[Rfam]
RNA sequence: AGGUGAGGUAGAGGUCGCGAACGUUAUUAGUAUCAUUUUCGAGAUGAGAAAGCAUUACUGACAAAAUGAGAAAGGAACGUUUGCCGAAGUAUUUCAAAUGCUUUUAUCAUUUGAAUGCUGGGGCUGUCGCUUAAUAGGUGCAGAACUGUCACGUAACAACGUGUUGAGCUAUCUUUAAU
Numbered sequence: 001a002g003g004u005g006a007g008g009u010a011g012a013g014g015u016c017g018c019g020a021a022c023g024u025u026a027u028u029a030g031u032a033u034c035a036u037u038u039u040c041g042a043g044a045u046g047a048g049a050a051a052g053c054a055u056u057a058c059u060g061a062c063a064a065a066a067u068g069a070g071a072a073a074g075g076a077a078c079g080u081u082u083g084c085c086g087a088a089g090u091a092u093u094u095c096a097a098a099u100g101c102u103u104u105u106a107u108c109a110u111u112u113g114a115a116u117g118c119u120g121g122g123g124c125u126g127u128c129g130c131u132u133a134a135u136a137g138g139u140g141c142a143g144a145a146c147u148g149u150c151a152c153g154u155a156a157c158a159a160c161g162u163g164u165u166g167a168g169c170u171a172u173c174u175u176u177a178a179u
Base pairs, nucleotide, nucleotide: 006174007173008172009171010170011169017084018083019082020081021080022079023078024077025076033069034068035067036066037065038064039063088119089118090117091116092115093114095113096112097111098110099109100108120147121146124143125142126141128140129139130138131137150163151162152161153160154159